[Rfam]
RNA sequence: AGUAGCUCCUAAGUAAAAUUGGGCUUUAAUGUGGUGACACAUUAUCGAAACAUUCCUAAUUGCUGAGAAACCCUAAAGCUGUUUCAACCACAACGCAACCAGCAAUGGUAAUCGUGAAGGUUUGAAAAUGAAACAGAUGAAACAAUGGGCAAUCAGCAGCGAAGCAUCUUAAAUUUGAUUUUAAGAUGAACGUUCAACGACUAUAGGUGUAGCGACCUUUACCUCAUAAGCCAAUGAUGAGGGAAACGGAAUGGCACUCAUUAGAGUGUUUGAUAUAGUCUUCGCUUAUAGGAAACUAUAAG
Dot-bracket structure: ....(..(((((......)))))..)...(((......))).........[[[[.[....((((((....(((.........................................................................)))...))))))((.....(((((((........)))))))....))...(.(((((............................................].]]]].(((((....))))).......)))))).....(((((....)))))..
Annotation: Group I catalytic intron: a 302-nucleotide RNA sequence from Fervidibacillus halotolerans. Rfam's curators write: Group I catalytic introns are large self-splicing ribozymes. They catalyse their own excision from mRNA, tRNA and rRNA precursors in a wide range of organisms. The core secondary structure consists of 9 paired regions (P1-P9). These fold to essentially two domains - the P4-P6 domain (formed from the stacking of P5, P4, P6 and P6a helices) and the P3-P9 domain (formed from the P8, P3, P7 and P9 helices). Lineage of the source: Bacteria > Bacillota > Bacilli > Caryophanales > Fervidibacillus. Gene Ontology term of the family: Group I intron splicing.